This 86-nucleotide RNA from Hibiscus syriacus belongs to the Rfam family "Small nucleolar RNA Z159/U59". The base pairs follow the family's consensus structure, which was predicted with PFOLD. Rfam links the family to the GO terms nucleolus and RNA processing. Lineage of the source: Eukaryota > Streptophyta > Pentapetalae > rosids > Hibiscus. A search with the family's covariance model found it, with a score of 65 bits. Clan: SNORD59 clan. The family's RNA type in Rfam is C/D-box small nucleolar RNA. A reference for the family is Chen et al. (2003), "The high diversity of snoRNAs in plants: identification and comparative study of 120 snoRNA genes from Oryza sativa", Nucleic Acids Res.
[Rfam]
RNA sequence: AUCUCCGAGGAUGAUUGAAAAUAGAAACUUUCGUUCUUCCGAGGAAGUCCAUGCGGAAAAUUUCUGGAGACCUGAACUGAGGAGAC
Numbered sequence: 001a002u003c004u005c006c007g008a009g010g011a012u013g014a015u016u017g018a019a020a021a022u023a024g025a026a027a028c029u030u031u032c033g034u035u036c037u038u039c040c041g042a043g044g045a046a047g048u049c050c051a052u053g054c055g056g057a058a059a060a061u062u063u064c065u066g067g068a069g070a071c072c073u074g075a076a077c078u079g080a081g082g083a084g085a086c
Stems, first nucleotide, its partner, number of pairs: 003084004